Rfam assigns this 74-nucleotide RNA sequence from Triplophysa tibetana to the family "mir-30 microRNA precursor family". On this family, see Mourelatos et al., Genes Dev 2002: "miRNPs: a novel class of ribonucleoproteins containing numerous microRNAs". Its family is annotated with gene silencing by miRNA and RISC complex in the Gene Ontology. This family consists of the mammalian microRNA (miRNA) precursor mir-30a. Animal miRNAs are transcribed as ~70nt precursors and subsequently processed by the Dicer enzyme to give a ~22nt product. The source organism's lineage runs through Eukaryota, Metazoa, Deuterostomia, Gnathostomata and Triplophysa.

[Rfam]
RNA sequence: AUCAGGUGUGUAAACAUCCUACACUCUCAGCUGUGACAUCAACGAGCUGGGAGAGGGGUGUUUACUCUCUUUGU
Dot-bracket structure: .(.(((.(.(((((((((((...(((((((((............))))))))).))))))))))).).))).).